[Rfam]
RNA sequence: CUCUUAUCCAGAGCGGCGGAGGGACUGGCCCGAUGAAGCCCGGCAACCACCAUACAUCACUGUAUGGAGAGGUGCUAAAUCCUGCAGGACGUUAAUGUCUUGAGAGAUGAGAG
Numbered sequence: 001c002u003c004u005u006a007u008c009c010a011g012a013g014c015g016g017c018g019g020a021g022g023g024a025c026u027g028g029c030c031c032g033a034u035g036a037a038g039c040c041c042g043g044c045a046a047c048c049a050c051c052a053u054a055c056a057u058c059a060c061u062g063u064a065u066g067g068a069g070a071g072g073u074g075c076u077a078a079a080u081c082c083u084g085c086a087g088g089a090c091g092u093u094a095a096u097g098u099c100u101u102g103a104g105a106g107a108u109g110a111g112a113g
Base pairs, nucleotide, nucleotide: 001113002112003111004110005109006108007107008106013041015040016039017038021031022030023029025084027082028081042076043075044074045073047072048071050067051066052065053064054063080105085102086101087100088099089098090097
RNA: SAM riboswitch aptamer (S box leader)